[Rfam]
RNA sequence: AAGACUAUGUGUGACUGGCGAAAACGGAUAACCGUGGGGGAGCACAUAGUGUCGAGUAGCCGUUCGCCUGGGCAGAGGUA
Numbered sequence: 001a002a003g004a005c006u007a008u009g010u011g012u013g014a015c016u017g018g019c020g021a022a023a024a025c026g027g028a029u030a031a032c033c034g035u036g037g038g039g040g041a042g043c044a045c046a047u048a049g050u051g052u053c054g055a056g057u058a059g060c061c062g063u064u065c066g067c068c069u070g071g072g073c074a075g076a077g078g079u080a
Stems, first nucleotide, its partner, number of pairs: 004050009015039002017068005024035004057075001059073003
Dot-bracket structure: ...(((((((((..(([[[[[..((((....))))..))..)))))))))......(.(((..]]]]]..))).).....
The family of this 80-nucleotide sequence from Cytobacillus dafuensis is "ZMP/ZTP riboswitch aptamer (pfl RNA motif)". On this family, see Trausch et al., Chem Biol 2015: "Metal Ion-Mediated Nucleobase Recognition by the ZTP Riboswitch". NCBI's taxonomy places the organism under Bacteria, Bacilli, Caryophanales, Bacillaceae, Cytobacillus.